[Rfam]
RNA: MIR5387 microRNA precursor family
Organism: Miscanthus lutarioriparius
RNA sequence: UGGUGGCUCCAACCGGGACUAAAGGUCCCCUGCCACAACGGCCUGGUGCAGGAGCCGUUGGGCAGGGACCUUUAGUCCCGGUUGGAGCCACCAA
Numbered sequence: 001u002g003g004u005g006g007c008u009c010c011a012a013c014c015g016g017g018a019c020u021a022a023a024g025g026u027c028c029c030c031u032g033c034c035a036c037a038a039c040g041g042c043c044u045g046g047u048g049c050a051g052g053a054g055c056c057g058u059u060g061g062g063c064a065g066g067g068a069c070c071u072u073u074a075g076u077c078c079c080g081g082u083u084g085g086a087g088c089c090a091c092c093a094a
Stems, first nucleotide, its partner, number of pairs: 003091025029066002034061001036060001038058002043051002